This 55-nucleotide sequence from Tiarella trifoliata belongs to the Rfam family "Plastid-ccsA-ndhD-1 3UTR RNA". On this family, see Richter et al., Plant Commun 2023: "Retrograde signaling in plants: A critical review focusing on the GUN pathway and beyond". About the family: Plastid-ccsA-ndhD-1 is a non-coding RNA (ncRNA) recognised in plastids.
RNA sequence: AGCCCACGAGAACCAUUUGAAUCAAGUAGUGUAGUGAUUCAAAUGGUUCUCACAA
Numbered sequence: 001a002g003c004c005c006a007c008g009a010g011a012a013c014c015a016u017u018u019g020a021a022u023c024a025a026g027u028a029g030u031g032u033a034g035u036g037a038u039u040c041a042a043a044u045g046g047u048u049c050u051c052a053c054a055a
Base pairs, nucleotide, nucleotide: 008051009050010049011048012047013046014045015044016043017042018041019040020039021038022037023036024035